Rfam assigns this 70-nucleotide RNA to the family "Cyano-1 RNA". The family's RNA type in Rfam is small RNA.

[Rfam]
Nucleotides: 070
Base pairs, nucleotide, nucleotide: 016066017065018064019063020062021061024058025057029053030052031051032049033048034047
Number, partner (000 for none) and nucleotide at each position: 001000g002000a003000u004000u005000g006000u007000g008000u009000g010000a011000a012000g013000g014000a015000g016066g017065a018064a019063u020062u021061g022000a023000u024058u025057u026000a027000u028000u029053u030052c031051a032049g033048u034047g035000g036000a037000a038000a039000c040000a041000a042000g043000g044000a045000a046000a047034c048033a049032c050000u051031u052030g053029a054000u055000g056000u057025a058024a059000a060000u061021c062020a063019a064018u065017u066016u067000u068000u069000a070000a
The base pairs follow the family's consensus structure, which is taken from published work. The sequence is in the family's curated seed alignment.